The record is a 104-nucleotide RNA sequence, which matches "c-di-GMP-II-GAG riboswitch aptamer" in Rfam. For this family Rfam cites "Bioinformatic analysis of riboswitch structures uncovers variant classes with altered ligand specificity" (Weinberg et al., Proc Natl Acad Sci U S A, 2017). Gene Ontology terms of the family: regulation of gene expression and cyclic-di-GMP binding.

Nucleotides: 104
Base pairs, nucleotide, nucleotide: 002104003103004102008097009096010095011094013079014078015077022073023072024071026069028068029067030066039091040090041087042086043085044084045083
Number, partner (000 for none) and nucleotide at each position: 001000a002104c003103c004102g005000g006000a007000u008097c009096g010095g011094g012000a013079u014078g015077c016000a017000g018000u019000g020000a021000c022073c023072u024071c025000c026069g027000a028068g029067g030066g031000c032000g033000c034000c035000g036000a037000a038000c039091g040090g041087u042086c043085g044084c045083c046000u047000g048000g049000g050000g051000c052000a053000a054000u055000a056000c057000g058000u059000g060000c061000c062000c063000c064000g065000c066030c067029c068028u069026c070000c071024g072023a073022g074000c075000g076000a077015g078014c079013g080000a081000g082000u083045g084044g085043u086042g087041a088000g089000a090040c091039c092000g093000a094011c095010c096009c097008g098000c099000a100000a101000g102004c103003g104002g